[Rfam]
RNA sequence: CUGUCUCUCGCUUCAACAGAGUUUGAAUGGAACAG
Numbered sequence: 001c002u003g004u005c006u007c008u009c010g011c012u013u014c015a016a017c018a019g020a021g022u023u024u025g026a027a028u029g030g031a032a033c034a035g
Stems, first nucleotide, its partner, number of pairs: 001035004006031003010028001012027005017021001
The family of this 35-nucleotide RNA from Pipistrellus kuhlii is "Iron response element I". The organism belongs to Pipistrellus, within Eukaryota. A search with the family's covariance model found it, with a score of 40 bits. The family has 62 seed sequences and 6,829 matches in Rfam 15.1. The literature on the family includes a 1999 paper in Insect Biochem Mol Biol by Huang et al., "An atypical iron-responsive element (IRE) within crayfish ferritin mRNA and an iron regulatory protein 1 (IRP1)-like protein from crayfish hepatopancreas".